[Rfam]
This 103-nucleotide RNA sequence from Rhinopithecus roxellana belongs to the Rfam family "Y RNA". Pairs were carried over by alignment from the consensus structure, which is taken from published work. From the family's description: Y RNAs are components of the Ro ribonucleoprotein particle (Ro RNP), in association with Ro60 and La proteins. The Y RNAs and Ro60 and La proteins are well conserved, but the function of the Ro RNP is not known. In humans the RNA component can be one of four small RNAs -- hY1, hY3, hY4 and hY5. These small RNAs are predicted to fold into a conserved secondary structure containing three stem structures. The largest of the four, hY1, contains an additional hairpin. This family includes a significant number of annotated pseudogenes and the model is expected to discriminate poorly between real and Y RNA related pseudogenes. The match comes from Rfam's covariance-model search (38 bits). The literature on the family includes a 2000 paper in Nucleic Acids Res by Teunissen et al., "Conserved features of Y RNAs: a comparison of experimentally derived secondary structures".
RNA sequence: AAAUAAUCCAUGGUAGUGAGUUAUCUUGAUUGUUUAGUCAAUUACAGAUUGAGUUCUUUUCUACUCUUUCCCUAUGCUCACUACUGCACUGGACUAGUCUUAA
Numbered sequence: 001a002a003a004u005a006a007u008c009c010a011u012g013g014u015a016g017u018g019a020g021u022u023a024u025c026u027u028g029a030u031u032g033u034u035u036a037g038u039c040a041a042u043u044a045c046a047g048a049u050u051g052a053g054u055u056c057u058u059u060u061c062u063a064c065u066c067u068u069u070c071c072c073u074a075u076g077c078u079c080a081c082u083a084c085u086g087c088a089c090u091g092g093a094c095u096a097g098u099c100u101u102a103a
Stems, first nucleotide, its partner, number of pairs: 002098001004096002007093002010090001013087002015082006036065003040060002
Dot-bracket structure: .(.((.((.(..((((((((...............(((.((.................))..)))...........))))))...))..).)).)).).....